This 144-nucleotide sequence from Hordeum vulgare belongs to the Rfam family "small nucleolar RNA snoR135".
The family's consensus secondary structure was predicted with RNAalifold.
Rfam classes the family as an H/ACA-box small nucleolar RNA.
On this family, see Chen and Wu, Nucleic Acids Res 2009: "Mining small RNA sequencing data: a new approach to identify small nucleolar RNAs in Arabidopsis".

RNA sequence: UCUGCAGGAUAGGUGUGUAUUGGUUAAAUGCUUUUGCUCUGCAUUCAUUACUGAAAGUAUUUCCUGCAAUAUUAAUUUGAGGAAAGUGGGCAGUUGGGUUGAGCUUGAUAGUCUCUUUCGCCAACAAUCAUUUUCCUGUCAUUU
Numbered sequence: 001u002c003u004g005c006a007g008g009a010u011a012g013g014u015g016u017g018u019a020u021u022g023g024u025u026a027a028a029u030g031c032u033u034u035u036g037c038u039c040u041g042c043a044u045u046c047a048u049u050a051c052u053g054a055a056a057g058u059a060u061u062u063c064c065u066g067c068a069a070u071a072u073u074a075a076u077u078u079g080a081g082g083a084a085a086g087u088g089g090g091c092a093g094u095u096g097g098g099u100u101g102a103g104c105u106u107g108a109u110a111g112u113c114u115c116u117u118u119c120g121c122c123a124a125c126a127a128u129c130a131u132u133u134u135c136c137u138g139u140c141a142u143u144u
Stems, first nucleotide, its partner, number of pairs: 004067006015044005080137010093125004